[Rfam]
A member of the RNA family "Bacterial RNase P class A" from Allosphingosinicella flava, 373 nucleotides long. A search with the family's covariance model found it, with a score of 302 bits.

RNA sequence: CCAGAGGGUCGGGCGGCCGCGGCCUGCAGCAAUGCGGGGCGAGGAAAGUCCGGGCUCCACGGAACAACGGUGCCGGAUAACGUCCGGCGGGGGCGACCCCAGGGAAAGUGCCACAGAAAGCAUACCGCCGCUCUUCGGUGCGGUAAGGUCGAAAGGGUGCGGCAAGAGCGCACCGCGGGCCCGGCAACGGGAACGGCAUGGCAAACCCCACCGGGAGCAAGACCGAAUAGGGGCGGCAUGGUGGCCUUGUUCCGGCCGGACCGCCCGGGUUGGUUGCUUGAGGGGCGGAGCGAUCCGCCUCCUAGAGGAAUGGCCGCACAGUCUUCGCGAAAGCGGGGAUGGACAGAACCCGGCUUAUAGACCCUCUGGCUUG
Numbered sequence: 001c002c003a004g005a006g007g008g009u010c011g012g013g014c015g016g017c018c019g020c021g022g023c024c025u026g027c028a029g030c031a032a033u034g035c036g037g038g039g040c041g042a043g044g045a046a047a048g049u050c051c052g053g054g055c056u057c058c059a060c061g062g063a064a065c066a067a068c069g070g071u072g073c074c075g076g077a078u079a080a081c082g083u084c085c086g087g088c089g090g091g092g093g094c095g096a097c098c099c100c101a102g103g104g105a106a107a108g109u110g111c112c113a114c115a116g117a118a119a120g121c122a123u124a125c126c127g128c129c130g131c132u133c134u135u136c137g138g139u140g141c142g143g144u145a146a147g148g149u150c151g152a153a154a155g156g157g158u159g160c161g162g163c164a165a166g167a168g169c170g171c172a173c174c175g176c177g178g179g180c181c182c183g184g185c186a187a188c189g190g191g192a193a194c195g196g197c198a199u200g201g202c203a204a205a206c207c208c209c210a211c212c213g214g215g216a217g218c219a220a221g222a223c224c225g226a227a228u229a230g231g232g233g234c235g236g237c238a239u240g241g242u243g244g245c246c247u248u249g250u251u252c253c254g255g256c257c258g259g260a261c262c263g264c265c266c267g268g269g270u271u272g273g274u275u276g277c278u279u280g281a282g283g284g285g286c287g288g289a290g291c292g293a294u295c296c297g298c299c300u301c302c303u304a305g306a307g308g309a310a311u312g313g314c315c316g317c318a319c320a321g322u323c324u325u326c327g328c329g330a331a332a333g334c335g336g337g338g339a340u341g342g343a344c345a346g347a348a349c350c351c352g353g354c355u356u357a358u359a360g361a362c363c364c365u366c367u368g369g370c371u372u373g
Stems, first nucleotide, its partner, number of pairs: 001369010011358001013317006020041002023038006046356003050353005055217004064251001068213005073087005088102001089100004103208002108206002110202003125148002127144005133138001156174006175197001176195002180191004221275004231266006242258005282301008
It is annotated as a ribozyme.